Description
Rfam assigns this 106-nucleotide RNA sequence from Vulpes vulpes to the family "mir-8834 microRNA precursor family". NCBI's taxonomy places the organism under Eukaryota, Gnathostomata, Amniota, Mammalia, Vulpes.

RNA sequence: AGGAGGAACAACCACAGUGGCGGCGGUCAGCUCUGGAGCCCUGGAGUCAGCUCCAGCAGUAACUACAGAGCUCUGGGUCUGCAGCGUCUGGAUGCUCCGGGGUGGG
Numbered sequence: 001a002g003g004a005g006g007a008a009c010a011a012c013c014a015c016a017g018u019g020g021c022g023g024c025g026g027u028c029a030g031c032u033c034u035g036g037a038g039c040c041c042u043g044g045a046g047u048c049a050g051c052u053c054c055a056g057c058a059g060u061a062a063c064u065a066c067a068g069a070g071c072u073c074u075g076g077g078u079c080u081g082c083a084g085c086g087u088c089u090g091g092a093u094g095c096u097c098c099g100g101g102g103u104g105g106g
Stems, first nucleotide, its partner, number of pairs: 002098004007093001009090002012086001019079003024075003029072007037064001041059003
Pairs were carried over by alignment from the consensus structure, which was predicted with RNAalifold. The family has 2 seed sequences and 13,926 matches in Rfam 15.1. It scores 59 bits against the family's covariance model.